[Rfam]
RNA sequence: UUCAGAGUAGGUGUCCGGGCGUUAAGUGCCGGAGGGACGGGGAGUUGCCCUUCGGACGAAAACAAAGCUGUUGCGGUCCGGAUUCCGCAUCCCGCUGGU
Numbered sequence: 001u002u003c004a005g006a007g008u009a010g011g012u013g014u015c016c017g018g019g020c021g022u023u024a025a026g027u028g029c030c031g032g033a034g035g036g037a038c039g040g041g042g043a044g045u046u047g048c049c050c051u052u053c054g055g056a057c058g059a060a061a062a063c064a065a066a067g068c069u070g071u072u073g074c075g076g077u078c079c080g081g082a083u084u085c086c087g088c089a090u091c092c093c094g095c096u097g098g099u
Stems, first nucleotide, its partner, number of pairs: 002098004010086002013083007020075003026057002029055008040092003044088001061072004
RNA: THF (Tetrahydrofolate) riboswitch aptamer